RNA sequence: GCCGAGCUCAAUUGUGAGAGUUUGUAACCCAAGUGGGGGCAUCAAGGUGAUGUCGACAUUUGUAGCGCUGCGGGCCUGGUCUGGGAAUGCUAUUGCUGACCCGCUCGUUCCAAGUUGCGUAGUGGACCGCUUGGGGUCUAUACGAAAGCUGGGCCUCAUGGUCCAUAAUGUGGCAGGCACAGCGUGAGGCUGGCUUCAUAGAGCAGCGACAACUGCCCGCUUCCAACGGUGGAAGGAUAACGGGCCGCUGCACUCCUAGGCCGCUUGGGCCUCGUAGCCUACUCCAGCGAACCAUCACAUUU
Numbered sequence: 001g002c003c004g005a006g007c008u009c010a011a012u013u014g015u016g017a018g019a020g021u022u023u024g025u026a027a028c029c030c031a032a033g034u035g036g037g038g039g040c041a042u043c044a045a046g047g048u049g050a051u052g053u054c055g056a057c058a059u060u061u062g063u064a065g066c067g068c069u070g071c072g073g074g075c076c077u078g079g080u081c082u083g084g085g086a087a088u089g090c091u092a093u094u095g096c097u098g099a100c101c102c103g104c105u106c107g108u109u110c111c112a113a114g115u116u117g118c119g120u121a122g123u124g125g126a127c128c129g130c131u132u133g134g135g136g137u138c139u140a141u142a143c144g145a146a147a148g149c150u151g152g153g154c155c156u157c158a159u160g161g162u163c164c165a166u167a168a169u170g171u172g173g174c175a176g177g178c179a180c181a182g183c184g185u186g187a188g189g190c191u192g193g194c195u196u197c198a199u200a201g202a203g204c205a206g207c208g209a210c211a212a213c214u215g216c217c218c219g220c221u222u223c224c225a226a227c228g229g230u231g232g233a234a235g236g237a238u239a240a241c242g243g244g245c246c247g248c249u250g251c252a253c254u255c256c257u258a259g260g261c262c263g264c265u266u267g268g269g270c271c272u273c274g275u276a277g278c279c280u281a282c283u284c285c286a287g288c289g290a291a292c293c294a295u296c297a298c299a300u301u302u
Base pairs, nucleotide, nucleotide: 001040002039003038004023005022006021007020008019009018028037029036030035044301045300047298048297049296050295051294052293057289059287060286062282063281064280065279068277069276070275071274072273073272074271076269077268078262079261080260081259082258083257084256085255088252089251091250092249097247098246100244101243102242103241105236106235108234109233110232111231112230114227115226116225117224119223121221122220123219124164125163126162127161128160129159132158133157134156135155136154137153138152139151140150143148172217173216174215175214176213183208184207185206190201191200192199
RNA: Plant signal recognition particle RNA